[Rfam]
Nucleotides: 159
Base pairs, nucleotide, nucleotide: 001058002057003056005055006054007053008052011049012048014046015045016044017043018042019041020040021039022038023037026034027033059081060080061079064075065074066073067072082121083120084119085118086117091113092112093111094110095109096108097107125151127149130146
Number, partner (000 for none) and nucleotide at each position: 001058g002057g003056g004000u005055g006054c007053u008052u009000g010000a011049u012048c013000c014046u015045u016044u017043u018042u019041g020040g021039u022038u023037c024000a025000a026034g027033c028000a029000u030000g031000c032000a033027g034026u035000c036000u037023g038022g039021g040020c041019c042018a043017a044016a045015a046014a047000u048012g049011a050000g051000a052008a053007a054006g055005c056003c057002c058001c059081g060080u061079u062000a063000g064075u065074g066073a067072a068000u069000a070000u071000g072067u073066u074065c075064a076000a077000c078000c079061a080060a081059c082121g083120g084119g085118g086117c087000a088000c089000a090000c091113a092112u093111c094110u095109c096108a097107a098000a099000c100000u101000c102000g103000a104000c105000a106000c107097u108096u109095g110094g111093g112092a113091u114000u115000g116000u117086g118085c119084c120083u121082c122000u123000u124000a125151g126000c127149c128000a129000a130146u131000a132000a133000g134000a135000g136000g137000u138000c139000a140000a141000g142000g143000a144000g145000a146130a147000a148000u149127g150000a151125c152000c153000a154000a155000g156000u157000a158000u159000g